[Rfam]
About this RNA: The family of this 387-nucleotide RNA from Tissierella sp. P1 is "Bacterial RNase P class A". Gene Ontology terms of the family: dimeric ribonuclease P complex, tRNA processing and ribonuclease P activity. By type it is a ribozyme.
RNA sequence: CGAGUAAGUUGGAUGGUCGCGUGUGGUAACACAUGAGGAAAGUCCGUGCUCCAUAGGGCAGGAUGCUGGAUAACGUCCAGUGGGGGUGACCCUAAGGAUAGUGCAACAGAGAUAUACCGCCAGAACUCUUUCUCGGCAUUUGCUUGGACUGUAGUGAAAUAAUCCAUGGAGAUUAUCUGGUAAGGGUGGAAAGGCGAGGUAAGAGCUCACCAGCAUUUAGGUGACUAAAUGGCUCUGUAAACCCCAUCUGGAGCAAGACCAAAAAGGAACAUAAAAGGUGGUAGCCCGCUGCCGUUCCAAUGGUAGGUCGCAGGAACCUAUCGGUAACGAUAGGUCUUAGAUAGAUGACCAUUUAAACAGAACACGGCUUAUAGACUUACUCGUAUA
Numbered sequence: 001c002g003a004g005u006a007a008g009u010u011g012g013a014u015g016g017u018c019g020c021g022u023g024u025g026g027u028a029a030c031a032c033a034u035g036a037g038g039a040a041a042g043u044c045c046g047u048g049c050u051c052c053a054u055a056g057g058g059c060a061g062g063a064u065g066c067u068g069g070a071u072a073a074c075g076u077c078c079a080g081u082g083g084g085g086g087u088g089a090c091c092c093u094a095a096g097g098a099u100a101g102u103g104c105a106a107c108a109g110a111g112a113u114a115u116a117c118c119g120c121c122a123g124a125a126c127u128c129u130u131u132c133u134c135g136g137c138a139u140u141u142g143c144u145u146g147g148a149c150u151g152u153a154g155u156g157a158a159a160u161a162a163u164c165c166a167u168g169g170a171g172a173u174u175a176u177c178u179g180g181u182a183a184g185g186g187u188g189g190a191a192a193g194g195c196g197a198g199g200u201a202a203g204a205g206c207u208c209a210c211c212a213g214c215a216u217u218u219a220g221g222u223g224a225c226u227a228a229a230u231g232g233c234u235c236u237g238u239a240a241a242c243c244c245c246a247u248c249u250g251g252a253g254c255a256a257g258a259c260c261a262a263a264a265a266g267g268a269a270c271a272u273a274a275a276a277g278g279u280g281g282u283a284g285c286c287c288g289c290u291g292c293c294g295u296u297c298c299a300a301u302g303g304u305a306g307g308u309c310g311c312a313g314g315a316a317c318c319u320a321u322c323g324g325u326a327a328c329g330a331u332a333g334g335u336c337u338u339a340g341a342u343a344g345a346u347g348a349c350c351a352u353u354u355a356a357a358c359a360g361a362a363c364a365c366g367g368c369u370u371a372u373a374g375a376c377u378u379a380c381u382c383g384u385a386u387a
Stems, first nucleotide, its partner, number of pairs: 001383010011372001012353007020035006040370003044367005049253004056287004061249005066080005081095001082093004096244002101242002103238003117185002119181006193211002196208003213233001214231007257309004267297004278292005316335008